The record is a 102-nucleotide RNA from Muntiacus reevesi, which matches "Y RNA" in Rfam. Pairs were carried over by alignment from the consensus structure, which is taken from published work. It is annotated as a non-coding RNA gene.
RNA sequence: GGUUGGUCCGAGUGCAGCGGUGUUUACAGUUAAUUGAUCACAGCCAGUUACAGAUUUAUUUAUUCCUUCUCCACUUCCCCUGCUUCACUUGACUAGCCUUUU
Numbered sequence: 001g002g003u004u005g006g007u008c009c010g011a012g013u014g015c016a017g018c019g020g021u022g023u024u025u026a027c028a029g030u031u032a033a034u035u036g037a038u039c040a041c042a043g044c045c046a047g048u049u050a051c052a053g054a055u056u057u058a059u060u061u062a063u064u065c066c067u068u069c070u071c072c073a074c075u076u077c078c079c080c081u082g083c084u085u086c087a088c089u090u091g092a093c094u095a096g097c098c099u100u101u102u
Base pairs, nucleotide, nucleotide: 001098002097003096004095005094006093007092008091010090011089014086016081017080019078020077028064029063030062032060033059
Rfam 15.1 lists 26,986 matches to the family in 650 species.